[Rfam]
Rfam assigns this 87-nucleotide sequence to the family "Small nucleolar RNA Z162". Rfam 15.1 lists 146 matches to the family in 75 species. Its family is annotated with RNA processing and nucleolus in the Gene Ontology. The sequence is in the family's curated seed alignment. A reference for the family is Chen et al. (2003), "The high diversity of snoRNAs in plants: identification and comparative study of 120 snoRNA genes from Oryza sativa", Nucleic Acids Res.
RNA sequence: UGGCACAAUGAGGAACUAACUUUGCUAAUGUAUCUAUGAGGCCAUUAGGCUAAUGACUCAAAAUGUCCUUUUCAUUCUGAGUGCCAC
Number, nucleotide and partner (000 for none) at each position: 001u000002g085003g084004c083005a082006c081007a000008a075009u074010g073011a072012g071013g000014a000015a000016c000017u000018a000019a000020c000021u000022u000023u000024g000025c000026u000027a000028a000029u000030g000031u000032a000033u000034c000035u000036a000037u000038g000039a000040g000041g050042c049043c048044a000045u000046u000047a000048g043049g042050c041051u000052a000053a000054u000055g000056a000057c000058u000059c000060a000061a000062a000063a000064u000065g000066u000067c000068c000069u000070u000071u012072u011073c010074a009075u008076u000077c000078u000079g000080a000081g006082u005083g004084c003085c002086a000087c000